[Rfam]
RNA sequence: GCUACUAUGCCGGCUGAUGGAUUGCUCGGCUCGAGUGCCGAAGACGGACGUGCCAAGCUGCGAUAAGCCUCAGGGAGCUGCAUGGAAGCUAAGAACUGAGGAUCUCCGAAUGGGAAUCCCUCUACAAUUGCUUUGCGCAAUAGGGAACGUCCUGAAUUGAAACAUCUUAGUAAGGACAGGAAGAGAAAGCAACUGCGAUGUCGUAAGUAACCGCGAGUGAACGCGAUACAGCCCAAACCGAAUCCGCAAGGAAAUGUGGUGUACGGGCUGGCUACCAGCACUCGACAAACUACGAGAAGUCUCUUGGAACAGAGCACGAAACAGGGCGACAGUCCCGUACCGUAGUUCAGUAGAGUGUGCGCCAGACCCAGAGUAGCGGGGGUUGGAUAUCCCUCGUGAAUGUCGCGGGCAUCGACCGCGAAGGCUAAACACUCCUCGAGACCGAUAGCGAACAAGUAGCGUGAGCGAACGCUGAAAAGCACCCCGAGAAGGGCGGUGCAAUAGGGCAUGAAACCAGUCGGCGAUAGAGC
Numbered sequence: 001g002c003u004a005c006u007a008u009g010c011c012g013g014c015u016g017a018u019g020g021a022u023u024g025c026u027c028g029g030c031u032c033g034a035g036u037g038c039c040g041a042a043g044a045c046g047g048a049c050g051u052g053c054c055a056a057g058c059u060g061c062g063a064u065a066a067g068c069c070u071c072a073g074g075g076a077g078c079u080g081c082a083u084g085g086a087a088g089c090u091a092a093g094a095a096c097u098g099a100g101g102a103u104c105u106c107c108g109a110a111u112g113g114g115a116a117u118c119c120c121u122c123u124a125c126a127a128u129u130g131c132u133u134u135g136c137g138c139a140a141u142a143g144g145g146a147a148c149g150u151c152c153u154g155a156a157u158u159g160a161a162a163c164a165u166c167u168u169a170g171u172a173a174g175g176a177c178a179g180g181a182a183g184a185g186a187a188a189g190c191a192a193c194u195g196c197g198a199u200g201u202c203g204u205a206a207g208u209a210a211c212c213g214c215g216a217g218u219g220a221a222c223g224c225g226a227u228a229c230a231g232c233c234c235a236a237a238c239c240g241a242a243u244c245c246g247c248a249a250g251g252a253a254a255u256g257u258g259g260u261g262u263a264c265g266g267g268c269u270g271g272c273u274a275c276c277a278g279c280a281c282u283c284g285a286c287a288a289a290c291u292a293c294g295a296g297a298a299g300u301c302u303c304u305u306g307g308a309a310c311a312g313a314g315c316a317c318g319a320a321a322c323a324g325g326g327c328g329a330c331a332g333u334c335c336c337g338u339a340c341c342g343u344a345g346u347u348c349a350g351u352a353g354a355g356u357g358u359g360c361g362c363c364a365g366a367c368c369c370a371g372a373g374u375a376g377c378g379g380g381g382g383u384u385g386g387a388u389a390u391c392c393c394u395c396g397u398g399a400a401u402g403u404c405g406c407g408g409g410c411a412u413c414g415a416c417c418g419c420g421a422a423g424g425c426u427a428a429a430c431a432c433u434c435c436u437c438g439a440g441a442c443c444g445a446u447a448g449c450g451a452a453c454a455a456g457u458a459g460c461g462u463g464a465g466c467g468a469a470c471g472c473u474g475a476a477a478a479g480c481a482c483c484c485c486g487a488g489a490a491g492g493g494c495g496g497u498g499c500a501a502u503a504g505g506g507c508a509u510g511a512a513a514c515c516a517g518u519c520g521g522c523g524a525u526a527g528a529g530c
Base pairs, nucleotide, nucleotide: 008523009522010521011520012519013518014517015516016515023508024472025471028443029442030440031439032438033437034436035435037432045108046107047106048105049062050061051060068101069100070099071098072097073096077089078088079087112121113120114119127141128140129139130138131137148179149177150176151175152174153173159166160165189196190195200227201226202225203224204223210218211217230426231425232424233423238259239258240257269364270363271362272361279357280356281355282354293342294341299315301314302313303312304311318322324336325335326334376397377396378395379394380393381392382391404420405419406418407417408416459466460465
RNA: Archaeal large subunit ribosomal RNA, nucleotides 10 to 539
Organism: Halolamina pelagica